[Rfam]
RNA sequence: AGGUGUGAUAUCGUGCUUCCUGGGACGUGUGAUGCUGUGCUUCCUGGGAGGUGUGAUCCCACACUC
Number, nucleotide and partner (000 for none) at each position: 001a065002g064003g000004u000005g000006u000007g000008a000009u000010a000011u056012c055013g054014u053015g052016c000017u050018u049019c048020c047021u046022g045023g044024g043025a042026c000027g000028u039029g038030u037031g036032a000033u000034g000035c000036u031037g030038u029039g028040c000041u000042u025043c024044c023045u022046g021047g020048g019049a018050g017051g000052u015053g014054u013055g012056a011057u000058c000059c000060c000061a000062c000063a000064c002065u001066c000
RNA: mir-3689 microRNA precursor family
Organism: Homo sapiens